Record summary:
The family of this 69-nucleotide RNA sequence from Bemisia tabaci is "mir-965 microRNA precursor family". Lineage of the source: Eukaryota > Ecdysozoa > Arthropoda > Mandibulata > Bemisia. For this family Rfam cites "The regulation of silkworm fibroin L chain production by miRNA-965 and miRNA-1926 in insect cells" (Huang et al., Bioorg Khim, 2012). The base pairs follow the family's consensus structure, which was predicted with RNAalifold. Rfam links the family to the GO terms RISC complex and miRNA-mediated post-transcriptional gene silencing.

RNA sequence: GAUGGAACGGGGGAAGUUAUAUCGCAGAUGUUCUGCUUAUCAUAAGCGUAUAGCUUUUCCCCUUUCAAC
Numbered sequence: 001g002a003u004g005g006a007a008c009g010g011g012g013g014a015a016g017u018u019a020u021a022u023c024g025c026a027g028a029u030g031u032u033c034u035g036c037u038u039a040u041c042a043u044a045a046g047c048g049u050a051u052a053g054c055u056u057u058u059c060c061c062c063u064u065u066c067a068a069c
Stems, first nucleotide, its partner, number of pairs: 003067005009061003013057002017053005025046001028043003